[Rfam]
RNA sequence: UGCCCAGCAACUCCUAUCCCUACCUCCUCGUGGUACUGGCCGGGUACGAGUAACCAUAGGGAAAAUCUGGUAACCAACCCCAGUGGGAACUUUGGUCGCAUGCUGACAGGGAAGU
Numbered sequence: 001u002g003c004c005c006a007g008c009a010a011c012u013c014c015u016a017u018c019c020c021u022a023c024c025u026c027c028u029c030g031u032g033g034u035a036c037u038g039g040c041c042g043g044g045u046a047c048g049a050g051u052a053a054c055c056a057u058a059g060g061g062a063a064a065a066u067c068u069g070g071u072a073a074c075c076a077a078c079c080c081c082a083g084u085g086g087g088a089a090c091u092u093u094g095g096u097c098g099c100a101u102g103c104u105g106a107c108a109g110g111g112a113a114g115u
Stems, first nucleotide, its partner, number of pairs: 014114002017111003022034003047102002050099002053096004
The record is a 115-nucleotide RNA from Aedes aegypti, which matches "drz-agam-1 ribozyme" in Rfam. The source organism's lineage runs through Eukaryota, Metazoa, Protostomia, Arthropoda and Stegomyia. The family has 7 seed sequences and 10,507 matches in Rfam 15.1.